[Rfam]
RNA sequence: GGAAUAUAAAAAACCGUCUCUUAACUUUUAACUAAAAAAAGUUAAGAACCGGCUCUUAAAUAAGAUAUUUAAAAGUUAAGUCGGUUCUUAUUUAAGAGCUGGUUCUUAACUUUUUUAUUUAAAAGUUAAGAGAAGUUUUUUUAUAUUCC
Numbered sequence: 001g002g003a004a005u006a007u008a009a010a011a012a013a014c015c016g017u018c019u020c021u022u023a024a025c026u027u028u029u030a031a032c033u034a035a036a037a038a039a040a041g042u043u044a045a046g047a048a049c050c051g052g053c054u055c056u057u058a059a060a061u062a063a064g065a066u067a068u069u070u071a072a073a074a075g076u077u078a079a080g081u082c083g084g085u086u087c088u089u090a091u092u093u094a095a096g097a098g099c100u101g102g103u104u105c106u107u108a109a110c111u112u113u114u115u116u117a118u119u120u121a122a123a124a125g126u127u128a129a130g131a132g133a134a135g136u137u138u139u140u141u142u143a144u145a146u147u148c149c
Stems, first nucleotide, its partner, number of pairs: 001149013015135001017133015033117007042109020
RNA: MIR9563 microRNA precursor family